[Rfam]
Description
The family of this 308-nucleotide sequence from Manihot esculenta is "Plant signal recognition particle RNA". The organism belongs to Manihot, within Eukaryota. A search with the family's covariance model found it, with a score of 214 bits. By type it is a non-coding RNA gene. Pairs were carried over by alignment from the consensus structure, which is taken from published work.

RNA sequence: GCCGAGCCCAGUAGCGUGGGCCUAUGACCUAAGCGGGGGCUUUGAGGUGAUGGAACGUUGCGCUUGUUCGGAAGGUUGGGCCCGAUGUUGGCAAAUAUUAUGGCUUGCCCCAUUCCAAGCCCGGAGUUGAAUCAUGGAGCUCAAGCGAAGGCUUGGGGUUGCAUAUUUCCUAGAGCAAAGGGUACUGCGUGAGGCUGGUUUCACAGAGCAGCGACUACCUCUCGCUCCUGGCAGUGGAAGGAUAACAAGUCGGUGUCACCCGAGCCCAUAUGACCAGAUGGGCUUCGCUAACCCGGACCGUCACCUUU
Numbered sequence: 001g002c003c004g005a006g007c008c009c010a011g012u013a014g015c016g017u018g019g020g021c022c023u024a025u026g027a028c029c030u031a032a033g034c035g036g037g038g039g040c041u042u043u044g045a046g047g048u049g050a051u052g053g054a055a056c057g058u059u060g061c062g063c064u065u066g067u068u069c070g071g072a073a074g075g076u077u078g079g080g081c082c083c084g085a086u087g088u089u090g091g092c093a094a095a096u097a098u099u100a101u102g103g104c105u106u107g108c109c110c111c112a113u114u115c116c117a118a119g120c121c122c123g124g125a126g127u128u129g130a131a132u133c134a135u136g137g138a139g140c141u142c143a144a145g146c147g148a149a150g151g152c153u154u155g156g157g158g159u160u161g162c163a164u165a166u167u168u169c170c171u172a173g174a175g176c177a178a179a180g181g182g183u184a185c186u187g188c189g190u191g192a193g194g195c196u197g198g199u200u201u202c203a204c205a206g207a208g209c210a211g212c213g214a215c216u217a218c219c220u221c222u223c224g225c226u227c228c229u230g231g232c233a234g235u236g237g238a239a240g241g242a243u244a245a246c247a248a249g250u251c252g253g254u255g256u257c258a259c260c261c262g263a264g265c266c267c268a269u270a271u272g273a274c275c276a277g278a279u280g281g282g283c284u285u286c287g288c289u290a291a292c293c294c295g296g297a298c299c300g301u302c303a304c305c306u307u308u
Stems, first nucleotide, its partner, number of pairs: 001040003004023001006021005028037003044307010056295002058291003061287002068281003074275004078267004083262002087259001089258003094254001101252007110241002113239005119232003123228005129169003134164003138160002140157007170175001177222001179220003188213003195206003